[Rfam]
A member of the RNA family "mir-1208 microRNA precursor family" from Pongo pygmaeus, 73 nucleotides long. Rfam's curators put it in the seed alignment. Its family is annotated with RISC complex and miRNA-mediated post-transcriptional gene silencing in the Gene Ontology.
RNA sequence: CACCGGCAGAAUCACUGUUCAGACAGGCGGAGACGGGUCUUUCUCGCCAUCUGAUGAGUCACCACUGUGGUGG
Numbered sequence: 001c002a003c004c005g006g007c008a009g010a011a012u013c014a015c016u017g018u019u020c021a022g023a024c025a026g027g028c029g030g031a032g033a034c035g036g037g038u039c040u041u042u043c044u045c046g047c048c049a050u051c052u053g054a055u056g057a058g059u060c061a062c063c064a065c066u067g068u069g070g071u072g073g
Base pairs, nucleotide, nucleotide: 001072002071003070004069005068007067008066009065014059015058016057019054020053021052022051023050026048027047028046029045030043031042032041033040